RNA sequence: CCUCCUUUUCUUGGCGGGGACCGGGCUUGUGGAUCCGCUCCCCAUAGGAAGAGGGAAAGGGCUCUGGCCCCCUCAGCGUCAUGUCUUCGGUGCCGGUGACUUCUCAUCCGCUGGUUCUAUCCUCAAGCACCGAGACACCG
Numbered sequence: 001c002c003u004c005c006u007u008u009u010c011u012u013g014g015c016g017g018g019g020a021c022c023g024g025g026c027u028u029g030u031g032g033a034u035c036c037g038c039u040c041c042c043c044a045u046a047g048g049a050a051g052a053g054g055g056a057a058a059g060g061g062c063u064c065u066g067g068c069c070c071c072c073u074c075a076g077c078g079u080c081a082u083g084u085c086u087u088c089g090g091u092g093c094c095g096g097u098g099a100c101u102u103c104u105c106a107u108c109c110g111c112u113g114g115u116u117c118u119a120u121c122c123u124c125a126a127g128c129a130c131c132g133a134g135a136c137a138c139c140g
Stems, first nucleotide, its partner, number of pairs: 001048003016043005022037004074132001076130001078128002093114006

The family of this 140-nucleotide RNA from Aotus nancymaae is "Small nucleolar RNA SNORA57".
NCBI's taxonomy places the organism under Eukaryota, Craniata, Primates, Aotidae, Aotus.
Rfam 15.1 lists 1,736 matches to the family in 530 species.
The literature on the family includes a 2003 paper in Nucleic Acids Res by Vitali et al., "Identification of 13 novel human modification guide RNAs".
Rfam classes the family as an H/ACA-box small nucleolar RNA.
The match comes from Rfam's covariance-model search (116 bits).
U99 belongs to the H/ACA class of snoRNAs which are thought to guide the sites of modification of uridines to pseudouridines, the target for this family is unknown.